[Rfam]
RNA sequence: GCCUGCUGUGCUUUAGCAGCACGUAAAUACUGGAGUUUAGGAUGGUCUCCAGUAUUGCUUUGCUGCUGUAGUGAAGCUGGC
Numbered sequence: 001g002c003c004u005g006c007u008g009u010g011c012u013u014u015a016g017c018a019g020c021a022c023g024u025a026a027a028u029a030c031u032g033g034a035g036u037u038u039a040g041g042a043u044g045g046u047c048u049c050c051a052g053u054a055u056u057g058c059u060u061u062g063c064u065g066c067u068g069u070a071g072u073g074a075a076g077c078u079g080g081c
Stems, first nucleotide, its partner, number of pairs: 001081003005077002014068008023059001026056010
RNA: mir-15 microRNA precursor family
Organism: Ophiophagus hannah